[Rfam]
Record summary:
A member of the RNA family "Eukaryotic large subunit ribosomal RNA" from Pomacea canaliculata, 528 nucleotides of a longer RNA.
RNA sequence: CCCUCCGAAGUUUCCCUCAGGAUAGCUGGCACUCAUGUACCCAAGCAGUUUUAUCCGGUAAAGCGAAUGAUUAGAGGCCUUGGGGACGAAACGACCUCAACCUAUUCUCAAACUUUAAAUGGGUAAGAAGUCUGACUCGCUCGAUUGGAGCCAGACCCCUCGAAUGCGAGUGCCAAGUGGGCCACUUUUGGUAAGCAGAACUGGCGCUGUGGGAUGAACCAAACGUUCGGUUAAGGUGCCUAACGUUGACGCUCAUCAGAAACCAUAAAAGGUGUUGGUUGAUAUAGACAGCAGGACGGUGGCCAUGGAAGUCGGAAUCCGCUAAGGAGUGUGUAACAACUCACCUGCCGAAUCAACCAGCCCUGAAAAUGGAUGGCGCUGGAGCGUCAGACCUAUACCGGACCGUCUCGGCAACGAGAAUCGCUCGGUCAAACGAGCGAGAGCCACGCUGAGACGAGUAGGAGGGCCGCUGCGGUGAGCGCCGAAGCCUGGGACGCGAGUCUGGGUGGAGCCGCCGCAGGCGCAGAU
Numbered sequence: 001c002c003c004u005c006c007g008a009a010g011u012u013u014c015c016c017u018c019a020g021g022a023u024a025g026c027u028g029g030c031a032c033u034c035a036u037g038u039a040c041c042c043a044a045g046c047a048g049u050u051u052u053a054u055c056c057g058g059u060a061a062a063g064c065g066a067a068u069g070a071u072u073a074g075a076g077g078c079c080u081u082g083g084g085g086a087c088g089a090a091a092c093g094a095c096c097u098c099a100a101c102c103u104a105u106u107c108u109c110a111a112a113c114u115u116u117a118a119a120u121g122g123g124u125a126a127g128a129a130g131u132c133u134g135a136c137u138c139g140c141u142c143g144a145u146u147g148g149a150g151c152c153a154g155a156c157c158c159c160u161c162g163a164a165u166g167c168g169a170g171u172g173c174c175a176a177g178u179g180g181g182c183c184a185c186u187u188u189u190g191g192u193a194a195g196c197a198g199a200a201c202u203g204g205c206g207c208u209g210u211g212g213g214a215u216g217a218a219c220c221a222a223a224c225g226u227u228c229g230g231u232u233a234a235g236g237u238g239c240c241u242a243a244c245g246u247u248g249a250c251g252c253u254c255a256u257c258a259g260a261a262a263c264c265a266u267a268a269a270a271g272g273u274g275u276u277g278g279u280u281g282a283u284a285u286a287g288a289c290a291g292c293a294g295g296a297c298g299g300u301g302g303c304c305a306u307g308g309a310a311g312u313c314g315g316a317a318u319c320c321g322c323u324a325a326g327g328a329g330u331g332u333g334u335a336a337c338a339a340c341u342c343a344c345c346u347g348c349c350g351a352a353u354c355a356a357c358c359a360g361c362c363c364u365g366a367a368a369a370u371g372g373a374u375g376g377c378g379c380u381g382g383a384g385c386g387u388c389a390g391a392c393c394u395a396u397a398c399c400g401g402a403c404c405g406u407c408u409c410g411g412c413a414a415c416g417a418g419a420a421u422c423g424c425u426c427g428g429u430c431a432a433a434c435g436a437g438c439g440a441g442a443g444c445c446a447c448g449c450u451g452a453g454a455c456g457a458g459u460a461g462g463a464g465g466g467c468c469g470c471u472g473c474g475g476u477g478a479g480c481g482c483c484g485a486a487g488c489c490u491g492g493g494a495c496g497c498g499a500g501u502c503u504g505g506g507u508g509g510a511g512c513c514g515c516c517g518c519a520g521g522c523g524c525a526g527a528u
Stems, first nucleotide, its partner, number of pairs: 001466006011024001013022003027175007049128008061116001062114002068110003073105001075103003080100006087093001130156005136150003181205004186200005210221003225403005231397001235393003244390001246389001250386003270364003274361010291348005297321003303315002322326001327342001331340002404456009468523001470520008479512002487507002493502003
Description:
Its family is annotated with ribosome and structural constituent of ribosome in the Gene Ontology. The source organism's lineage runs through Eukaryota, Mollusca, Caenogastropoda, Ampullariidae and Pomacea.